[Rfam]
The record is a 122-nucleotide sequence from Hydrangea caerulea, which matches "Plastid-psbA-1 3UTR RNA" in Rfam. Plastid psbA-1 is a non-coding RNA (ncRNA) present in plastids. It was identified in inverted repeat sequences in the 3 prime untranslate region (3UTR) of photosystem II quinone-binding protein (psbA). It is one of the family's seed sequences. Lineage of the source: Eukaryota > Streptophyta > Euphyllophyta > asterids > Hydrangea sect. Deinanthe. On this family, see Richter et al., Plant Commun 2023: "Retrograde signaling in plants: A critical review focusing on the GUN pathway and beyond".
RNA sequence: UUGAAGCUCCAUCUACAAAUGGAUAAGACUUUGGUGUUAGUGUAUACGAGUUCUUGAAAGUAAAGUAAAGGAGCAAUAACCAAUUUCUUGUUUUAUCAAGAGGACGGUAUUGCUCCUUUCUU
Numbered sequence: 001u002u003g004a005a006g007c008u009c010c011a012u013c014u015a016c017a018a019a020u021g022g023a024u025a026a027g028a029c030u031u032u033g034g035u036g037u038u039a040g041u042g043u044a045u046a047c048g049a050g051u052u053c054u055u056g057a058a059a060g061u062a063a064a065g066u067a068a069a070g071g072a073g074c075a076a077u078a079a080c081c082a083a084u085u086u087c088u089u090g091u092u093u094u095a096u097c098a099a100g101a102g103g104a105c106g107g108u109a110u111u112g113c114u115c116c117u118u119u120c121u122u
Stems, first nucleotide, its partner, number of pairs: 008023005067119012085102005